[Rfam]
RNA sequence: UGCCAUCCGCAGUUUUUUGUAGUGUGCUCCGCGCCAUCUUAGUGCCCGAAGCACCACGAGAAGCUGCAGAUGGAA
Numbered sequence: 001u002g003c004c005a006u007c008c009g010c011a012g013u014u015u016u017u018u019g020u021a022g023u024g025u026g027c028u029c030c031g032c033g034c035c036a037u038c039u040u041a042g043u044g045c046c047c048g049a050a051g052c053a054c055c056a057c058g059a060g061a062a063g064c065u066g067c068a069g070a071u072g073g074a075a
Base pairs, nucleotide, nucleotide: 003073004072005071006070007069009067010066011065012064013063014062015061016060017059018058019057020056024054025053026052027051028050030048031047033045034044
mir-49 microRNA precursor family: a 75-nucleotide sequence from Caenorhabditis briggsae. Pairs were carried over by alignment from the consensus structure, which was predicted with RNAalifold. On this family, see Lau et al., Science 2001: "An abundant class of tiny RNAs with probable regulatory roles in Caenorhabditis elegans". Lineage of the source: Eukaryota > Ecdysozoa > Nematoda > Rhabditoidea > Caenorhabditis. Gene Ontology terms of the family: RISC complex and miRNA-mediated post-transcriptional gene silencing.